RNA: mir-3492 microRNA precursor family
RNA sequence: AAUUCUGAAUCCGUGCUGAGAUUUCGUCAGACACCGACCCACUAGGGAUGAUGAGACUUUCGAGAUAAGCGAAGUG
Number, nucleotide and partner (000 for none) at each position: 001a000002a000003u072004u071005c000006u069007g000008a000009a066010u065011c064012c000013g000014u062015g061016c000017u000018g059019a058020g057021a000022u056023u055024u054025c053026g052027u051028c050029a000030g000031a000032c000033a000034c000035c000036g000037a000038c000039c000040c000041a000042c000043u000044a000045g000046g000047g000048a000049u000050g028051a027052u026053g025054a024055g023056a022057c020058u019059u018060u000061c015062g014063a000064g011065a010066u009067a000068a000069g006070c000071g004072a003073a000074g000075u000076g000